Rfam assigns this 51-nucleotide RNA to the family "chrB-b RNA". By type it is a cis-regulatory element.
[Rfam]
RNA sequence: CCGGGUCAAGGCAGACACCCGGUGACCAGGACAUCUCGUCCCAAGCGCUGC
Number, nucleotide and partner (000 for none) at each position: 001c022002c021003g020004g019005g018006u017007c000008a000009a000010g000011g051012c050013a049014g048015a000016c000017a006018c005019c004020c003021g002022g001023u000024g000025a000026c000027c000028a000029g041030g040031a039032c038033a000034u000035c000036u000037c000038g032039u031040c030041c029042c000043a000044a000045g000046c000047g000048c014049u013050g012051c011
The family's consensus secondary structure is taken from published work.